Shown here is a 64-nucleotide RNA from Duabanga grandiflora, a member of the family "Plastid-psbA-4 3UTR RNA". From the family's description: Plastid psbA-4 is a non-coding RNA (ncRNA) present in plastids. It was identified in inverted repeat sequences in the 3 prime untranslate region (3UTR) of photosystem II quinone-binding protein (psbA). The literature on the family includes a 2023 paper in Plant Commun by Richter et al., "Retrograde signaling in plants: A critical review focusing on the GUN pathway and beyond". Pairs were carried over by alignment from the consensus structure, which was predicted with LocARNA. It is one of the family's seed sequences. By type it is a cis-regulatory element.
RNA sequence: GAAAGUAAAGGAGCAAUAACCAAAUUCUUGUUCUAUCAAGAGCGUAGAUUAUUGCUCCUUUAUU
Numbered sequence: 001g002a003a004a005g006u007a008a009a010g011g012a013g014c015a016a017u018a019a020c021c022a023a024a025u026u027c028u029u030g031u032u033c034u035a036u037c038a039a040g041a042g043c044g045u046a047g048a049u050u051a052u053u054g055c056u057c058c059u060u061u062a063u064u
Stems, first nucleotide, its partner, number of pairs: 007061012022045001025042006